The family of this 257-nucleotide sequence from Dictyobacter vulcani is "HNH endonuclease-associated RNA and ORF (HEARO) RNA".

[Rfam]
RNA sequence: GUCAGAUACCCUACGCGUAAACGCGGGGGCUUAUGCUUGGGGGAGGCAUCUGCCCGUCCAGCACCAGCCCGGACCUGACCAGACCCAGCCAGGGGUGCAUGCACCCAUCGGGCUACGAUAGCGGCAGUGUCAAAGAACCUACCAACGCGUGCUUGCCAGCGUGUUGCUCUAGAACUUCUGAGUUAACCAGCCAGACGGGGUUCGAGGCCGUGCUCAGAGGAUGUGCAGACCGCUAUCACCGUCGAGGCACACCUUAC
Numbered sequence: 001g002u003c004a005g006a007u008a009c010c011c012u013a014c015g016c017g018u019a020a021a022c023g024c025g026g027g028g029g030c031u032u033a034u035g036c037u038u039g040g041g042g043g044a045g046g047c048a049u050c051u052g053c054c055c056g057u058c059c060a061g062c063a064c065c066a067g068c069c070c071g072g073a074c075c076u077g078a079c080c081a082g083a084c085c086c087a088g089c090c091a092g093g094g095g096u097g098c099a100u101g102c103a104c105c106c107a108u109c110g111g112g113c114u115a116c117g118a119u120a121g122c123g124g125c126a127g128u129g130u131c132a133a134a135g136a137a138c139c140u141a142c143c144a145a146c147g148c149g150u151g152c153u154u155g156c157c158a159g160c161g162u163g164u165u166g167c168u169c170u171a172g173a174a175c176u177u178c179u180g181a182g183u184u185a186a187c188c189a190g191c192c193a194g195a196c197g198g199g200g201u202u203c204g205a206g207g208c209c210g211u212g213c214u215c216a217g218a219g220g221a222u223g224u225g226c227a228g229a230c231c232g233c234u235a236u237c238a239c240c241g242u243c244g245a246g247g248c249a250c251a252c253c254u255u256a257c
Base pairs, nucleotide, nucleotide: 001079002078003077004076005075007073010029011028014025016023017022030041031040032039033038082243083242084241087114088113089112090111117237118236119235120234121233122232129230130229131228139172140171143166144165145164146163147162148161149160150159151253153251155248156247157246175220176219177218178217179216180215181214182213183212188210190208191207192206194203195202